[Rfam]
RNA sequence: AAUUAGUUAUACGACUGACGGAAGUGGAAUUAACCACAUGGAGUAUAAUCAUAGAGAGCCGACCGUCUGGGCAAAGAGU
Numbered sequence: 001a002a003u004u005a006g007u008u009a010u011a012c013g014a015c016u017g018a019c020g021g022a023a024g025u026g027g028a029a030u031u032a033a034c035c036a037c038a039u040g041g042a043g044u045a046u047a048a049u050c051a052u053a054g055a056g057a058g059c060c061g062a063c064c065g066u067c068u069g070g071g072c073a074a075a076g077a078g079u
Stems, first nucleotide, its partner, number of pairs: 004051001006049007015040001017067005024037004058072003
Shown here is a 79-nucleotide sequence from Erysipelatoclostridium sp. AM42-17, a member of the family "ZMP/ZTP riboswitch aptamer (pfl RNA motif)". Lineage of the source: Bacteria > Bacillati > Erysipelotrichales > Coprobacillaceae > Thomasclavelia. The base pairs follow the family's consensus structure, which is taken from published work.